[Rfam]
Background:
The family of this 107-nucleotide sequence from Chlamydia trachomatis is "IhtA sRNA". A histone like protein HctA and HctB play role in controlling the differentiation between the two cell types. The literature on the family includes a 2012 paper in PLoS One by Tattersall et al., "Translation inhibition of the developmental cycle protein HctA by the small RNA IhtA is conserved across Chlamydia". By type it is a small RNA. Rfam links the family to the GO term translation repressor activity.
RNA sequence: AAGUUGGUAUUCUAACGCCAUGGAAUAGCUUCUGACUCUAGUGUUUGUACACAGGGGGGAAGUCAAGAUGGACUGGAGUUAGCCGUAUCUCCGGUUCUCUUGGCUUU
Numbered sequence: 001a002a003g004u005u006g007g008u009a010u011u012c013u014a015a016c017g018c019c020a021u022g023g024a025a026u027a028g029c030u031u032c033u034g035a036c037u038c039u040a041g042u043g044u045u046u047g048u049a050c051a052c053a054g055g056g057g058g059g060a061a062g063u064c065a066a067g068a069u070g071g072a073c074u075g076g077a078g079u080u081a082g083c084c085g086u087a088u089c090u091c092c093g094g095u096u097c098u099c100u101u102g103g104c105u106u107u
Stems, first nucleotide, its partner, number of pairs: 002033002006029001008027007036056004059107010070097009